The family of this 66-nucleotide RNA from Mesorhizobium wenxiniae is "ybhL leader".

RNA sequence: CAGGCAUGCUGGAGCCCCGCCAGCGGCGCCGCGGUCCAAAUGGACCGGACACCGGACGGGGCAGAA
Numbered sequence: 001c002a003g004g005c006a007u008g009c010u011g012g013a014g015c016c017c018c019g020c021c022a023g024c025g026g027c028g029c030c031g032c033g034g035u036c037c038a039a040a041u042g043g044a045c046c047g048g049a050c051a052c053c054g055g056a057c058g059g060g061g062c063a064g065a066a
Stems, first nucleotide, its partner, number of pairs: 014062006024054003032047003
Dot-bracket structure: .............((((((....(((.....(((..........)))....)))..))))))....
The match comes from Rfam's covariance-model search (57 bits). NCBI's taxonomy places the organism under Bacteria, Pseudomonadati, Pseudomonadota, Alphaproteobacteria, Mesorhizobium. This family is a putative regulatory RNA structure that is found upstream of an uncharacterized membrane protein in alpha-proteobacteria. The family's RNA type in Rfam is cis-regulatory leader.